About this RNA: This 77-nucleotide RNA sequence belongs to the Rfam family "L20-Deltaproteobacteria ribosomal protein leader". The base pairs follow the family's consensus structure, which is taken from published work.
RNA sequence: GGUUGUGAACUGUGGGGAUAUCUCCCCCUGCAGAUCCGACCGCGGCAUAUGCCGAAACAACAUUAUUUGAGAAGGAG
Numbered sequence: 001g002g003u004u005g006u007g008a009a010c011u012g013u014g015g016g017g018a019u020a021u022c023u024c025c026c027c028c029u030g031c032a033g034a035u036c037c038g039a040c041c042g043c044g045g046c047a048u049a050u051g052c053c054g055a056a057a058c059a060a061c062a063u064u065a066u067u068u069g070a071g072a073a074g075g076a077g
Stems, first nucleotide, its partner, number of pairs: 003039003007036002010033008
Rfam's curators put it in the seed alignment. A reference for the family is Eckert and Weinberg (2020), "Discovery of 20 novel ribosomal leader candidates in bacteria and archaea", BMC Microbiol.